[Rfam]
This 147-nucleotide RNA sequence from Paraburkholderia lacunae belongs to the Rfam family "Group II catalytic intron D1-D4-7". Its family is annotated with Group II intron splicing in the Gene Ontology. It scores 91 bits against the family's covariance model. Rfam 15.1 lists 1,296 matches to the family in 705 species. NCBI's taxonomy places the organism under Bacteria, Pseudomonadati, Pseudomonadota, Burkholderiales, Paraburkholderia. Rfam describes the family as follows. Group II introns are found in rRNA, tRNA and mRNA of organelles in fungi, plants and protists, and also in mRNA in bacteria. The literature on the family includes a 2001 paper in Trends Genet by Bonen and Vogel, "The ins and outs of group II introns".

RNA sequence: CCGGGCGUUCCGUCGUCCGUAGUCUAUCGGUGCAUGCAAGGCCGGCAACAGCCUUGUAUGAAGCCACCGAGACAAUGGAGCCCUGUGCAAGCCACGCCAAGGUCUGGAUACCGAAGCGUCUCUGCGAGUGUCAAUGCGGAGGGGGCG
Numbered sequence: 001c002c003g004g005g006c007g008u009u010c011c012g013u014c015g016u017c018c019g020u021a022g023u024c025u026a027u028c029g030g031u032g033c034a035u036g037c038a039a040g041g042c043c044g045g046c047a048a049c050a051g052c053c054u055u056g057u058a059u060g061a062a063g064c065c066a067c068c069g070a071g072a073c074a075a076u077g078g079a080g081c082c083c084u085g086u087g088c089a090a091g092c093c094a095c096g097c098c099a100a101g102g103u104c105u106g107g108a109u110a111c112c113g114a115a116g117c118g119u120c121u122c123u124g125c126g127a128g129u130g131u132c133a134a135u136g137c138g139g140a141g142g143g144g145g146c147g
Stems, first nucleotide, its partner, number of pairs: 002019006028069005033060010044049001095116001121140006